[Rfam]
RNA sequence: GAGGUGCCGUGAUGACGCAAUUUUCGUGGACUAGAGUUUCUGAUCUGGGUCAAUUCCUUGAAUCUGAUUAAUAUACCCUUGGCUGUCUGAGCACUCUC
Numbered sequence: 001g002a003g004g005u006g007c008c009g010u011g012a013u014g015a016c017g018c019a020a021u022u023u024u025c026g027u028g029g030a031c032u033a034g035a036g037u038u039u040c041u042g043a044u045c046u047g048g049g050u051c052a053a054u055u056c057c058u059u060g061a062a063u064c065u066g067a068u069u070a071a072u073a074u075a076c077c078c079u080u081g082g083c084u085g086u087c088u089g090a091g092c093a094c095u096c097u098c
Base pairs, nucleotide, nucleotide: 001098002097003096004094005093006092007091039067040066044062045060047058048057049056
The record is a 98-nucleotide sequence from Cucurbita maxima, which matches "Small nucleolar RNA Z157/R69/R10" in Rfam.
The family's consensus secondary structure was predicted with PFOLD.
Taxonomically the source falls in Cucurbita (Eukaryota, Euphyllophyta, Gunneridae, Cucurbitales).
The family has 10 seed sequences and 836 matches in Rfam 15.1.
Gene Ontology terms of the family: RNA processing and nucleolus.
On this family, see Chen et al., Nucleic Acids Res 2003: "The high diversity of snoRNAs in plants: identification and comparative study of 120 snoRNA genes from Oryza sativa".